[Rfam]
RNA: Fungal signal recognition particle RNA
Organism: Penicillium expansum
RNA sequence: AAUCUGUCAUGGAUAACCCAGUGGAAGGCUCACCGCCAUGCCAAUUACCCUGCUUCGGUCGCCAAGAUCAGCGGGAAAGGUGCCUGGUACGAAUCCUGGGGUUGGCAUUUUCACUCGUGCGAGUAAUCCACGACGCUGGAGGCCACUAAGCAAUGGAAAUGACCCUUGAGGGAAGCAAUUCUGCAGAGACAUUUCCACCCUGGGAUGGCGUCGCCAGAUUACACCUUCCUGUUACAGGAAAUUUGGCAAUUUGGUGGGACAACUACUACUU
Numbered sequence: 001a002a003u004c005u006g007u008c009a010u011g012g013a014u015a016a017c018c019c020a021g022u023g024g025a026a027g028g029c030u031c032a033c034c035g036c037c038a039u040g041c042c043a044a045u046u047a048c049c050c051u052g053c054u055u056c057g058g059u060c061g062c063c064a065a066g067a068u069c070a071g072c073g074g075g076a077a078a079g080g081u082g083c084c085u086g087g088u089a090c091g092a093a094u095c096c097u098g099g100g101g102u103u104g105g106c107a108u109u110u111u112c113a114c115u116c117g118u119g120c121g122a123g124u125a126a127u128c129c130a131c132g133a134c135g136c137u138g139g140a141g142g143c144c145a146c147u148a149a150g151c152a153a154u155g156g157a158a159a160u161g162a163c164c165c166u167u168g169a170g171g172g173a174a175g176c177a178a179u180u181c182u183g184c185a186g187a188g189a190c191a192u193u194u195c196c197a198c199c200c201u202g203g204g205a206u207g208g209c210g211u212c213g214c215c216a217g218a219u220u221a222c223a224c225c226u227u228c229c230u231g232u233u234a235c236a237g238g239a240a241a242u243u244u245g246g247c248a249a250u251u252u253g254g255u256g257g258g259a260c261a262a263c264u265a266c267u268a269c270u271u
Stems, first nucleotide, its partner, number of pairs: 002014003020267005029258007038250002040247005046241001049238002055065001057063001071230001074229004079225004084217005089211003093206009103145001104143001106141001108140003112135001115133005121128002146150001154197007165188003172181003